[Rfam]
RNA: Small nucleolar RNA SNORD26
Organism: Malurus elegans
RNA sequence: CUGCGGGGAUGAUCACCCUGAACUCUCUCUUACUGAUAAAACCAUGAAGAAUCACCUUAAACAGGCUCUGAGUGGC
Numbered sequence: 001c002u003g004c005g006g007g008g009a010u011g012a013u014c015a016c017c018c019u020g021a022a023c024u025c026u027c028u029c030u031u032a033c034u035g036a037u038a039a040a041a042c043c044a045u046g047a048a049g050a051a052u053c054a055c056c057u058u059a060a061a062c063a064g065g066c067u068c069u070g071a072g073u074g075g076c
Base pairs, nucleotide, nucleotide: 001075002074003073004072